[Rfam]
RNA: ASpks TB sRNA
RNA sequence: CUUCAGCGAGCCGAGCCACACGGGCUCCUCUCGGCCCCGGCCGUACGUGUUGAGCAGUGCCUGCGCCUC
Dot-bracket structure: .............((((.....)))).(.(.((...(....((....))....)...))...).)....